[Rfam]
RNA sequence: GGGAUAGCUCCGACUGAGCUGCCAGACCCCCGACCCGGCAGCUCGGUCGGAGCGUUUCU
Numbered sequence: 001g002g003g004a005u006a007g008c009u010c011c012g013a014c015u016g017a018g019c020u021g022c023c024a025g026a027c028c029c030c031c032g033a034c035c036c037g038g039c040a041g042c043u044c045g046g047u048c049g050g051a052g053c054g055u056u057u058c059u
Base pairs, nucleotide, nucleotide: 002058003057004056007053008052009051010050011049012048013047014046016044017043018042019041020040021039022038023037
Rfam assigns this 59-nucleotide RNA sequence from Gordonia soli to the family "F6 TB sRNA". The literature on the family includes a 2009 paper in Mol Microbiol by Arnvig and Young, "Identification of small RNAs in Mycobacterium tuberculosis". Rfam classes the family as a small RNA. Taxonomically the source falls in Gordonia soli (Bacteria, Actinomycetes, Gordoniaceae, Gordonia).